[Rfam]
RNA sequence: AAAACGAUUAAGUUCUAACCGUAGACAGCAGGUGGUUGAAAGACCUUAAAGGAGAAAUCCGCCUGCCGAGGUUGGUGUCUAUUUAAGGUGUUAAAAGCUUACUAACCUCCGUAUGUCUACGGAGGUUUCUUAUUUUUAUGC
Numbered sequence: 001a002a003a004a005c006g007a008u009u010a011a012g013u014u015c016u017a018a019c020c021g022u023a024g025a026c027a028g029c030a031g032g033u034g035g036u037u038g039a040a041a042g043a044c045c046u047u048a049a050a051g052g053a054g055a056a057a058u059c060c061g062c063c064u065g066c067c068g069a070g071g072u073u074g075g076u077g078u079c080u081a082u083u084u085a086a087g088g089u090g091u092u093a094a095a096a097g098c099u100u101a102c103u104a105a106c107c108u109c110c111g112u113a114u115g116u117c118u119a120c121g122g123a124g125g126u127u128u129c130u131u132a133u134u135u136u137u138a139u140g141c
Base pairs, nucleotide, nucleotide: 028066029065030064031063032062033061034045035044036043105126106125107124108123109122110121111120112119113118
RNA: Ribosomal protein L10 leader